[Rfam]
RNA sequence: ACUGGGAUGAUGCAGAAACUCAGGACUGAUGUCCAUUGAUUUUUCAUAAAGAUGAUGCUCACAACCAGCUACUUCUGACUAGU
Numbered sequence: 001a002c003u004g005g006g007a008u009g010a011u012g013c014a015g016a017a018a019c020u021c022a023g024g025a026c027u028g029a030u031g032u033c034c035a036u037u038g039a040u041u042u043u044u045c046a047u048a049a050a051g052a053u054g055a056u057g058c059u060c061a062c063a064a065c066c067a068g069c070u071a072c073u074u075c076u077g078a079c080u081a082g083u
Stems, first nucleotide, its partner, number of pairs: 001083005

Small nucleolar RNA R12: an 83-nucleotide RNA from Aegilops tauschii. The family's RNA type in Rfam is C/D-box small nucleolar RNA. Pairs were carried over by alignment from the consensus structure, which was predicted with PFOLD. Taxonomically the source falls in Aegilops tauschii (Eukaryota, Tracheophyta, Poales, Triticeae). The match comes from Rfam's covariance-model search (56 bits).